A member of the RNA family "mir-551 microRNA precursor family" from Acipenser ruthenus, 74 nucleotides long. The match comes from Rfam's covariance-model search (73 bits). The family's consensus secondary structure was predicted with RNAalifold. Gene Ontology terms of the family: miRNA-mediated post-transcriptional gene silencing and RISC complex.
[Rfam]
RNA sequence: UGACCCCUGAAAUCAAGGCUGGGUGGAGCCUGUGUGUAUGUUGCCAGGCGACCCAUUCUUGGUUUCAAAGGUCC
Numbered sequence: 001u002g003a004c005c006c007c008u009g010a011a012a013u014c015a016a017g018g019c020u021g022g023g024u025g026g027a028g029c030c031u032g033u034g035u036g037u038a039u040g041u042u043g044c045c046a047g048g049c050g051a052c053c054c055a056u057u058c059u060u061g062g063u064u065u066c067a068a069a070g071g072u073c074c
Base pairs, nucleotide, nucleotide: 002073003072004071005070009066010065011064012063013062014061016059017058021054022053023052024051028049029048030047031046